Shown here is a 94-nucleotide RNA sequence, a member of the family "DUF3800-VIII RNA". It is one of the family's seed sequences.
RNA sequence: UACACCCUGCUGCUUGCGAAGUCUCAGGUUCCACCUAAGAUACGCCUAAACGCAAUCUGUUGAUAUGCUACAGGCAUAGCAAGAGCGGGGUUUU
Numbered sequence: 001u002a003c004a005c006c007c008u009g010c011u012g013c014u015u016g017c018g019a020a021g022u023c024u025c026a027g028g029u030u031c032c033a034c035c036u037a038a039g040a041u042a043c044g045c046c047u048a049a050a051c052g053c054a055a056u057c058u059g060u061u062g063a064u065a066u067g068c069u070a071c072a073g074g075c076a077u078a079g080c081a082a083g084a085g086c087g088g089g090g091u092u093u094u
Stems, first nucleotide, its partner, number of pairs: 002093001004091008015081003021041004026036004
From the family's description: Bacteroidetes, Cyanobacteria, Firmicutes, Planctomycetes (1 example), Proteobacteria, Tenericutes (1 example). Rfam classes the family as a small RNA.